A member of the RNA family "Purine riboswitch aptamer" from Alkalicoccus daliensis, 101 nucleotides long. Pairs were carried over by alignment from the consensus structure, which is taken from published work. Rfam describes the family as follows. Riboswitches are metabolite binding domains within certain messenger RNAs that serve as precision sensors for their corresponding targets. Allosteric rearrangement of mRNA structure is mediated by ligand binding, and this results in modulation of gene expression. A class of riboswitches that selectively recognises guanine and becomes saturated at concentrations as low as 5 nM. In Bacillus subtilis, this mRNA motif is located on at least five separate transcriptional units that together encode 17 genes that are mostly involved in purine transport and purine nucleotide biosynthesis. It has also been shown that some members of this family are specific for adenine instead. Its family is annotated with purine nucleobase biosynthetic process in the Gene Ontology.

RNA sequence: CAAUAGAUUAAUACGAAACCUCAUAUAAUAUCAGGAAUACGGCCUGAGAGUAUCUACCUGCGACCGCAAAUCAGCAGACUAUGAGGGACGAGAUACAUAAU
Numbered sequence: 001c002a003a004u005a006g007a008u009u010a011a012u013a014c015g016a017a018a019c020c021u022c023a024u025a026u027a028a029u030a031u032c033a034g035g036a037a038u039a040c041g042g043c044c045u046g047a048g049a050g051u052a053u054c055u056a057c058c059u060g061c062g063a064c065c066g067c068a069a070a071u072c073a074g075c076a077g078a079c080u081a082u083g084a085g086g087g088a089c090g091a092g093a094u095a096c097a098u099a100a101u
Stems, first nucleotide, its partner, number of pairs: 019086007029049001031047005058077004062072002